[Rfam]
RNA sequence: AGGUUAAUGCUAAUUGUGAUAGGGGUUUAACUGUACAGAACUCCUAACCAUUAGCAUUAGCCU
Numbered sequence: 001a002g003g004u005u006a007a008u009g010c011u012a013a014u015u016g017u018g019a020u021a022g023g024g025g026u027u028u029a030a031c032u033g034u035a036c037a038g039a040a041c042u043c044c045u046a047a048c049c050a051u052u053a054g055c056a057u058u059a060g061c062c063u
Stems, first nucleotide, its partner, number of pairs: 004060011020046004025041003